[Rfam]
Shown here is an 82-nucleotide RNA sequence from Carnegiea gigantea, a member of the family "Small nucleolar RNA Z199". Gene Ontology terms of the family: RNA processing and nucleolus. It is annotated as a C/D-box small nucleolar RNA. A reference for the family is Chen et al. (2003), "The high diversity of snoRNAs in plants: identification and comparative study of 120 snoRNA genes from Oryza sativa", Nucleic Acids Res. It scores 77 bits against the family's covariance model. Rfam 15.1 lists 953 matches to the family in 222 species.

RNA sequence: AAUCAUCUGAUGAGGAAUAACUGCAACAAUAUGACCGAGGCUCAUUCUCCAUGAUUCUCUUGUAUUUAAGUCUCUGAUGAUU
Number, nucleotide and partner (000 for none) at each position: 001a081002a000003u080004c079005a078006u000007c000008u000009g000010a000011u000012g000013a000014g000015g000016a000017a000018u000019a000020a000021c000022u000023g000024c000025a000026a000027c000028a000029a000030u000031a000032u000033g000034a000035c000036c000037g049038a048039g047040g046041c000042u000043c000044a000045u000046u040047c039048u038049c037050c000051a000052u000053g000054a000055u000056u000057c000058u000059c000060u000061u000062g000063u000064a000065u000066u000067u000068a000069a000070g000071u000072c000073u000074c000075u000076g000077a000078u005079g004080a003081u001082u000